This 68-nucleotide RNA sequence from Ophiophagus hannah belongs to the Rfam family "mir-8/mir-141/mir-200 microRNA precursor family". The family is grouped with related families in Rfam's "mir-8 microRNA precursor clan". The match comes from Rfam's covariance-model search (72 bits). Taxonomically the source falls in Ophiophagus (Eukaryota, Eumetazoa, Teleostomi, Dipnotetrapodomorpha). The family has 164 seed sequences and 2,669 matches in Rfam 15.1.

RNA sequence: AUUGGCAUCUUACUGGGCAGCGUUGGAUGUUUUAUCUGUUUCUAAUACUGCCUGGUAAAGAUGUUGAU
Numbered sequence: 001a002u003u004g005g006c007a008u009c010u011u012a013c014u015g016g017g018c019a020g021c022g023u024u025g026g027a028u029g030u031u032u033u034a035u036c037u038g039u040u041u042c043u044a045a046u047a048c049u050g051c052c053u054g055g056u057a058a059a060g061a062u063g064u065u066g067a068u
Stems, first nucleotide, its partner, number of pairs: 002067008010058011022046006